This 177-nucleotide sequence from Thermoclostridium caenicola belongs to the Rfam family "Lysine riboswitch aptamer".
RNA sequence: UCUAUAGAUAGAGGCGCAUUUUCUAAGAGUAAUCCGGGCAAGGGCGGCGGGCCCGAUGACCCCGGACGAAAGGAGAAAAUGCCGAAGGGGCAUGAUUCCGUCCGGUCUGCUGCCUGGUUGUAUGGUUAAGAGCCAUGCGACUGUCGCUGGUAUAUACAGUGGAGAGCUAUCGGUAGA
Numbered sequence: 001u002c003u004a005u006a007g008a009u010a011g012a013g014g015c016g017c018a019u020u021u022u023c024u025a026a027g028a029g030u031a032a033u034c035c036g037g038g039c040a041a042g043g044g045c046g047g048c049g050g051g052c053c054c055g056a057u058g059a060c061c062c063c064g065g066a067c068g069a070a071a072g073g074a075g076a077a078a079a080u081g082c083c084g085a086a087g088g089g090g091c092a093u094g095a096u097u098c099c100g101u102c103c104g105g106u107c108u109g110c111u112g113c114c115u116g117g118u119u120g121u122a123u124g125g126u127u128a129a130g131a132g133c134c135a136u137g138c139g140a141c142u143g144u145c146g147c148u149g150g151u152a153u154a155u156a157c158a159g160u161g162g163a164g165a166g167c168u169a170u171c172g173g174u175a176g177a
Base pairs, nucleotide, nucleotide: 007171008170009169010168011167016082017081018080019079020078021077022076023075024074033066034065035064036063037062038061086115087114088113089111090110091109092108094107095106096105097104116142117141118140119139120138121137122136123135124134125133126132144162145161146160147159148158149157

The match comes from Rfam's covariance-model search (114 bits).
The base pairs follow the family's consensus structure, which is taken from published work.